[Rfam]
RNA sequence: GCAUUAAAGUAUCACCGAAGUCUAAAUCGACCUAAGUCACAAUGAUAUGGCGUUUAGACCCUUAGCAUCGACUAAGCAGGGUAGAGUGCAGAAAUGGCUUUGCCUCCCGCAUUUGGAAAGGUUGAUUUAUGUUAUCGGA
Number, nucleotide and partner (000 for none) at each position: 001g000002c000003a133004u000005u000006a130007a000008a000009g000010u000011a000012u124013c000014a122015c121016c120017g000018a000019a000020g059021u058022c057023u056024a055025a054026a053027u052028c000029g000030a000031c050032c049033u000034a000035a000036g046037u045038c044039a043040c000041a000042a000043u039044g038045a037046u036047a000048u000049g032050g031051c000052g027053u026054u025055u024056a023057g022058a021059c020060c000061c076062u075063u074064a073065g072066c000067a000068u000069c000070g000071a000072c065073u064074a063075a062076g061077c000078a000079g105080g104081g103082u102083a101084g100085a099086g098087u000088g000089c096090a095091g000092a000093a000094a000095u090096g089097g000098c086099u085100u084101u083102g082103c081104c080105u079106c116107c115108c000109g000110c000111a000112u000113u000114u000115g107116g106117a000118a000119a000120g016121g015122u014123u000124g012125a000126u000127u000128u000129a000130u006131g000132u000133u003134a000135u000136c000137g000138g000139a000